[Rfam]
RNA sequence: UGCCGCUGCCCUUACGGGCGUUUCCUCCCUAGACUUGACACCGCGCUGUGGCAACGCAGUGCGGUUUUUUUUGCCCGCG
Numbered sequence: 001u002g003c004c005g006c007u008g009c010c011c012u013u014a015c016g017g018g019c020g021u022u023u024c025c026u027c028c029c030u031a032g033a034c035u036u037g038a039c040a041c042c043g044c045g046c047u048g049u050g051g052c053a054a055c056g057c058a059g060u061g062c063g064g065u066u067u068u069u070u071u072u073g074c075c076c077g078c079g
Base pairs, nucleotide, nucleotide: 008019009018010017011016041064042063043062044061045060046059047058048057049056

Makes More Granules Regulator RNA (mmgR): a 79-nucleotide sequence from Aurantimonas sp. Leaf443.
By type it is a small RNA.
The source organism's lineage runs through Bacteria, Pseudomonadota, Alphaproteobacteria, Hyphomicrobiales and Aurantimonas.